[Rfam]
RNA sequence: AAAUUAAGUGCGGACAACCAGUACUAUAAAACGUGUUGCUUCGUUAUUUGAUUAUAUUAUUCCAAUAAUAUAAAUAUACAAAUAUGAUAGCGUCAAGUACUUGGAGAGAAAAAAUAGGAUCAUCUUAGUGCUCUUCGUGAAUUUAUUUAUUUCGCUACCAUUUUUGCAGAUGAUUAGUGUUGAAAUUCGUGAGGGCCGGUAGAUCCAAUAUCU
Numbered sequence: 001a002a003a004u005u006a007a008g009u010g011c012g013g014a015c016a017a018c019c020a021g022u023a024c025u026a027u028a029a030a031a032c033g034u035g036u037u038g039c040u041u042c043g044u045u046a047u048u049u050g051a052u053u054a055u056a057u058u059a060u061u062c063c064a065a066u067a068a069u070a071u072a073a074a075u076a077u078a079c080a081a082a083u084a085u086g087a088u089a090g091c092g093u094c095a096a097g098u099a100c101u102u103g104g105a106g107a108g109a110a111a112a113a114a115u116a117g118g119a120u121c122a123u124c125u126u127a128g129u130g131c132u133c134u135u136c137g138u139g140a141a142u143u144u145a146u147u148u149a150u151u152u153c154g155c156u157a158c159c160a161u162u163u164u165u166g167c168a169g170a171u172g173a174u175u176a177g178u179g180u181u182g183a184a185a186u187u188c189g190u191g192a193g194g195g196c197c198g199g200u201a202g203a204u205c206c207a208a209u210a211u212c213u
Stems, first nucleotide, its partner, number of pairs: 004014002018104002021100004038091003042086003125202003130196005136191008148179004152169001154167002157164001
RNA: Small nucleolar RNA snR35
Organism: [Candida] boidinii